Streptomyces sRNA scr5239: a 205-nucleotide RNA sequence from Actinacidiphila oryziradicis. The family's RNA type in Rfam is small RNA. Its family is annotated with negative regulation of translation and mRNA binding in the Gene Ontology. The organism belongs to Actinacidiphila, within Bacteria.
RNA sequence: CUUCCAUCCUCCCCGCACAGGAGGGUGGAGCGAGGCCCGGCGCUCUCUGCCCUGACUGCGCCCAGGCCUCACGGUCGGUCCUACAGGGCCGUGGGGCACCGCACACCCCGCGCGCCACGGUCCGACGGCAGCUCCGGGCUGCGGUGCUGGGCCCCUCUUUACACGUUAUGUGUAAGAGGGCGGGUUGAGGGUCCCGUCCUGGCGC
Numbered sequence: 001c002u003u004c005c006a007u008c009c010u011c012c013c014c015g016c017a018c019a020g021g022a023g024g025g026u027g028g029a030g031c032g033a034g035g036c037c038c039g040g041c042g043c044u045c046u047c048u049g050c051c052c053u054g055a056c057u058g059c060g061c062c063c064a065g066g067c068c069u070c071a072c073g074g075u076c077g078g079u080c081c082u083a084c085a086g087g088g089c090c091g092u093g094g095g096g097c098a099c100c101g102c103a104c105a106c107c108c109c110g111c112g113c114g115c116c117a118c119g120g121u122c123c124g125a126c127g128g129c130a131g132c133u134c135c136g137g138g139c140u141g142c143g144g145u146g147c148u149g150g151g152c153c154c155c156u157c158u159u160u161a162c163a164c165g166u167u168a169u170g171u172g173u174a175a176g177a178g179g180g181c182g183g184g185u186u187g188a189g190g191g192u193c194c195c196g197u198c199c200u201g202g203c204g205c
Base pairs, nucleotide, nucleotide: 003029004028005027006026008024009023010022011021012020032070033069034068035067036066039062040061042059043058044055045054077153078152079151080150081149159175160174161173162172164170165169178199179198180197181196182195183194184193